Description:
A member of the RNA family "MIR2630 microRNA precursor family" from Medicago truncatula, 229 nucleotides long. It scores 145 bits against the family's covariance model. Pairs were carried over by alignment from the consensus structure, which was predicted with RNAalifold.
RNA sequence: CCAUUUUGGUCUUUUCCGUUUGGUUUUGAUCCUUGGUGUUUUGUUUUAGUUUUUGUAAAAUUGAUUCAUAUUGGAUUUGGUCCUUAUAAUAUGUAGAAUAUUUGAUUUUAGUCCCUCAAAAUGAGGACUAAAGUGAAUAUUAUAGGGACCAAUUUCAAUAUGAAAUAAUUUUACAAUGAUUAAAACAAAAUAUCAAGGACCAAAACUAAAUAUUUUAUAUUUGCAUGGA
Numbered sequence: 001c002c003a004u005u006u007u008g009g010u011c012u013u014u015u016c017c018g019u020u021u022g023g024u025u026u027u028g029a030u031c032c033u034u035g036g037u038g039u040u041u042u043g044u045u046u047u048a049g050u051u052u053u054u055g056u057a058a059a060a061u062u063g064a065u066u067c068a069u070a071u072u073g074g075a076u077u078u079g080g081u082c083c084u085u086a087u088a089a090u091a092u093g094u095a096g097a098a099u100a101u102u103u104g105a106u107u108u109u110a111g112u113c114c115c116u117c118a119a120a121a122u123g124a125g126g127a128c129u130a131a132a133g134u135g136a137a138u139a140u141u142a143u144a145g146g147g148a149c150c151a152a153u154u155u156c157a158a159u160a161u162g163a164a165a166u167a168a169u170u171u172u173a174c175a176a177u178g179a180u181u182a183a184a185a186c187a188a189a190a191u192a193u194c195a196a197g198g199a200c201c202a203a204a205a206c207u208a209a210a211u212a213u214u215u216u217a218u219a220u221u222u223g224c225a226u227g228g229a
Stems, first nucleotide, its partner, number of pairs: 006223001008221003012217001018211003022207007030199005036193013050179002053176009065164002068161006077152007087142006105122005